This 102-nucleotide sequence from Bacillus cytotoxicus belongs to the Rfam family "Purine riboswitch aptamer". Rfam's curators put it in the seed alignment. Taxonomically the source falls in Bacillus cytotoxicus (Bacteria, Bacillati, Bacillota, Bacillus). Rfam describes the family as follows. Riboswitches are metabolite binding domains within certain messenger RNAs that serve as precision sensors for their corresponding targets. Gene Ontology term of the family: purine nucleobase biosynthetic process.
RNA sequence: AGAUAAUAUAAAACAAUCCUUCAUAUAUCCUCAAUAAUAUGGUUUGAGAGUCUCUACCGGGUUACCGUAAACAACCUGACUAUGAAGGCAGUGCGUCUUAUG
Numbered sequence: 001a002g003a004u005a006a007u008a009u010a011a012a013a014c015a016a017u018c019c020u021u022c023a024u025a026u027a028u029c030c031u032c033a034a035u036a037a038u039a040u041g042g043u044u045u046g047a048g049a050g051u052c053u054c055u056a057c058c059g060g061g062u063u064a065c066c067g068u069a070a071a072c073a074a075c076c077u078g079a080c081u082a083u084g085a086a087g088g089c090a091g092u093g094c095g096u097c098u099u100a101u102g
Stems, first nucleotide, its partner, number of pairs: 018088008030048005058078006